[Rfam]
RNA: mir-71 microRNA precursor family
Organism: Rhynchophorus ferrugineus
RNA sequence: ACCCCCUGAAAGACAUGGGUAGUGAGAUGUUCCCCAUUUGUCUCACUACCUUGUCUUUCAUGAGGUG
Number, nucleotide and partner (000 for none) at each position: 001a000002c000003c000004c000005c000006c000007u000008g059009a058010a057011a056012g055013a054014c053015a052016u000017g051018g050019g049020u000021a047022g046023u045024g044025a043026g042027a041028u040029g039030u000031u000032c000033c000034c000035c000036a000037u000038u000039u029040g028041u027042c026043u025044c024045a023046c022047u021048a000049c019050c018051u017052u015053g014054u013055c012056u011057u010058u009059c008060a000061u000062g000063a000064g000065g000066u000067g000